[Rfam]
RNA sequence: AUAAUAUUAGGACCGUCGGUCUACUGAGCAAUAUCACGCUCUCGAUAGAAGAUCUUUCCUUUGUUGC
Numbered sequence: 001a002u003a004a005u006a007u008u009a010g011g012a013c014c015g016u017c018g019g020u021c022u023a024c025u026g027a028g029c030a031a032u033a034u035c036a037c038g039c040u041c042u043c044g045a046u047a048g049a050a051g052a053u054c055u056u057u058c059c060u061u062u063g064u065u066g067c
Base pairs, nucleotide, nucleotide: 004064005063006062010058011057012056015053016052017051020049021048022047023046025044026043027042028041
RNA: mir-2774 microRNA precursor family